[Rfam]
Plastid-psbA-1 3UTR RNA: a 118-nucleotide sequence from Daucus carota. It is annotated as a cis-regulatory element. The base pairs follow the family's consensus structure, which was predicted with LocARNA.
RNA sequence: UUGAAGCUUCAUCUACAAUUGGAUAAGGCCUUAUCUUAGUCUAUACGAGUUUCUGAAAUAUUAAAAUAAGGAGAAAUAACCUCUUUUUUGUUCCAUCAAAAGGCGGUCUUGCUCUUUU
Numbered sequence: 001u002u003g004a005a006g007c008u009u010c011a012u013c014u015a016c017a018a019u020u021g022g023a024u025a026a027g028g029c030c031u032u033a034u035c036u037u038a039g040u041c042u043a044u045a046c047g048a049g050u051u052u053c054u055g056a057a058a059u060a061u062u063a064a065a066a067u068a069a070g071g072a073g074a075a076a077u078a079a080c081c082u083c084u085u086u087u088u089u090g091u092u093c094c095a096u097c098a099a100a101a102g103g104c105g106g107u108c109u110u111g112c113u114c115u116u117u118u
Stems, first nucleotide, its partner, number of pairs: 008023004068117006075110002078107001082103001085102005
It scores 72 bits against the family's covariance model.